The family of this 93-nucleotide RNA sequence from Nyssa sinensis is "MIR2275 microRNA precursor family". The source organism's lineage runs through Eukaryota, Mesangiospermae, eudicotyledons, Nyssaceae and Nyssa. The family has 13 seed sequences and 785 matches in Rfam 15.1. A search with the family's covariance model found it, with a score of 70 bits. Rfam links the family to the GO terms miRNA-mediated post-transcriptional gene silencing and RISC complex. The base pairs follow the family's consensus structure, which was predicted with RNAalifold.
Nucleotides: 093
Base pairs, nucleotide, nucleotide: 004090005089006088008086011083012082013081014080016077017076018075019074020073021072023070024069025068026067027066028065029064030063032061033060
Number, partner (000 for none) and nucleotide at each position: 001000a002000a003000g004090u005089u006088g007000u008086a009000g010000g011083u012082g013081a014080g015000a016077a017076u018075u019074g020073g021072a022000g023070g024069g025068g026067a027066c028065u029064a030063a031000a032061c033060a034000a035000a036000u037000u038000g039000a040000u041000c042000c043000u044000c045000a046000a047000g048000u049000a050000u051000u052000c053000u054000g055000c056000a057000a058000u059000u060033u061032g062000u063030u064029u065028a066027g067026u068025u069024u070023c071000c072021u073020c074019c075018a076017a077016u078000a079000u080014c081013u082012c083011a084000u085000c086008u087000c088006c089005a090004a091000c092000u093000u